[Rfam]
RNA sequence: UAGAAUAAUGUAGAUAAGGGAAGUCGGCAAAAUAGAUUCGUAACUUCGGAAAAAGAAUUGGCUCUAAGGGUUGGGUAGGAAUUGGCUCUUGAAAACCUUCUGAUGUGGAGUUUCUAAUGAUUUCGGUUAAAGGAGAUUCCUUCAAUUGGUUUUUAGGAAAUCACCCUACAAUUAACAACCAACUUAGAACUGGUACGGACAAGGGGAAUCUGACUGUCUAAUUAAAACAUAGCAUUGUGAUGGUUAGCAAUAAUGUUGACACAAUGUGAUUUCUGCCCAGUGCUCUGAAUGUCAAAGUGAAGAAAUUCAACCAAGCGCGGGUUAACGGCGGGAGUAACUAUGACUCUCUUAAGGUAGCCAAAUGCCUCGUCAUCUAAUUAGUGACGCGCAUGAAUGGAUUAACGAGAUUCCCACUGUCCCUAUUUACUAUCUAGCGAAACCACAGCCAAGGGAACGGGCUUGGAAAA
Numbered sequence: 001u002a003g004a005a006u007a008a009u010g011u012a013g014a015u016a017a018g019g020g021a022a023g024u025c026g027g028c029a030a031a032a033u034a035g036a037u038u039c040g041u042a043a044c045u046u047c048g049g050a051a052a053a054a055g056a057a058u059u060g061g062c063u064c065u066a067a068g069g070g071u072u073g074g075g076u077a078g079g080a081a082u083u084g085g086c087u088c089u090u091g092a093a094a095a096c097c098u099u100c101u102g103a104u105g106u107g108g109a110g111u112u113u114c115u116a117a118u119g120a121u122u123u124c125g126g127u128u129a130a131a132g133g134a135g136a137u138u139c140c141u142u143c144a145a146u147u148g149g150u151u152u153u154u155a156g157g158a159a160a161u162c163a164c165c166c167u168a169c170a171a172u173u174a175a176c177a178a179c180c181a182a183c184u185u186a187g188a189a190c191u192g193g194u195a196c197g198g199a200c201a202a203g204g205g206g207a208a209u210c211u212g213a214c215u216g217u218c219u220a221a222u223u224a225a226a227a228c229a230u231a232g233c234a235u236u237g238u239g240a241u242g243g244u245u246a247g248c249a250a251u252a253a254u255g256u257u258g259a260c261a262c263a264a265u266g267u268g269a270u271u272u273c274u275g276c277c278c279a280g281u282g283c284u285c286u287g288a289a290u291g292u293c294a295a296a297g298u299g300a301a302g303a304a305a306u307u308c309a310a311c312c313a314a315g316c317g318c319g320g321g322u323u324a325a326c327g328g329c330g331g332g333a334g335u336a337a338c339u340a341u342g343a344c345u346c347u348c349u350u351a352a353g354g355u356a357g358c359c360a361a362a363u364g365c366c367u368c369g370u371c372a373u374c375u376a377a378u379u380a381g382u383g384a385c386g387c388g389c390a391u392g393a394a395u396g397g398a399u400u401a402a403c404g405a406g407a408u409u410c411c412c413a414c415u416g417u418c419c420c421u422a423u424u425u426a427c428u429a430u431c432u433a434g435c436g437a438a439a440c441c442a443c444a445g446c447c448a449a450g451g452g453a454a455c456g457g458g459c460u461u462g463g464a465a466a467a
Stems, first nucleotide, its partner, number of pairs: 001433004010427007018419003035059005044049001060191002063188006069180005075169005081161003086156002094151004101144003107140009118129004192196001204412007211404002215229003232267008243254004271398003275329003280326002282322004287318001290317003298309004330348006349353001369385005446463005
RNA: Eukaryotic large subunit ribosomal RNA, nucleotides 1949 to 2415
Organism: Entomophaga aulicae